Nucleotides: 205
Stems, first nucleotide, its partner, number of pairs: 018048004025040006051078003055073005060067001089129002092127002101123003105119005149189001151187002155183001158178004163174004
Number, partner (000 for none) and nucleotide at each position: 001000g002000u003000c004000u005000c006000a007000c008000c009000c010000u011000u012000g013000g014000u015000a016000a017000c018048g019047g020046c021045c022000c023000a024000c025040g026039c027038u028037g029036a030035g031000u032000a033000c034000c035030c036029u037028c038027a039026g040025c041000c042000c043000c044000u045021g046020g047019c048018c049000u050000a051078c052077u053076g054000c055073c056072g057071c058070a059069a060067u061000g062000c063000g064000a065000u066000g067060a068000u069059u070058u071057g072056c073055g074000u075000g076053c077052a078051g079000c080000u081000g082000a083000u084000g085000g086000u087000g088000a089129g090128u091000c092127c093126c094000g095000u096000a097000a098000a099000c100000c101123g102122g103121u104000a105119u106118g107117g108116c109115c110000g111000c112000a113000u114000g115109g116108g117107c118106u119105g120000u121103g122102c123101c124000g125000g126093g127092g128090g129089c130000c131000a132000g133000a134000c135000a136000c137000u138000g139000c140000g141000c142000u143000a144000c145000c146000c147000c148000g149189c150000a151187g152186g153000g154000c155183g156000a157000c158178c159177g160176a161175u162000a163174c164173a165172c166171g167000g168000g169000u170000u171166c172165g173164u174163g175161a176160u177159c178158g179000c180000u181000u182000u183155u184000c185000a186152c187151c188000c189149g190000c191000u192000g193000c194000a195000u196000g197000u198000g199000a200000a201000a202000a203000g204000a205000g

A member of the RNA family "ilvB-OMG RNA" from Parahaliea aestuarii, 205 nucleotides long.